[Rfam]
RNA sequence: GUAGAUGCUCAUUCCAUUUCUUAUGUUCGCGCAAGCCUCAUAAACCCGGGAAUGACGCAGAGCCGAUUGCGGUGCCUAUUGUCCGAAUCCGAUGAAGCGUGUUAACACACAUCAUCAGCCUGUGGACACAACGUUGAGUGAGGCACCAAUCUGUUGUCCUAUAGAUCUGAUUGUCCUUUUUAGACACUUGCCGGCAGGCAGGUGUUUUUUU
Numbered sequence: 001g002u003a004g005a006u007g008c009u010c011a012u013u014c015c016a017u018u019u020c021u022u023a024u025g026u027u028c029g030c031g032c033a034a035g036c037c038u039c040a041u042a043a044a045c046c047c048g049g050g051a052a053u054g055a056c057g058c059a060g061a062g063c064c065g066a067u068u069g070c071g072g073u074g075c076c077u078a079u080u081g082u083c084c085g086a087a088u089c090c091g092a093u094g095a096a097g098c099g100u101g102u103u104a105a106c107a108c109a110c111a112u113c114a115u116c117a118g119c120c121u122g123u124g125g126a127c128a129c130a131a132c133g134u135u136g137a138g139u140g141a142g143g144c145a146c147c148a149a150u151c152u153g154u155u156g157u158c159c160u161a162u163a164g165a166u167c168u169g170a171u172u173g174u175c176c177u178u179u180u181u182a183g184a185c186a187c188u189u190g191c192c193g194g195c196a197g198g199c200a201g202g203u204g205u206u207u208u209u210u211u
Stems, first nucleotide, its partner, number of pairs: 001063002006059003009055004015050001017049001019042001027035001071147007081127005091116004156166003183206010
RNA: GlmZ RNA activator of glmS mRNA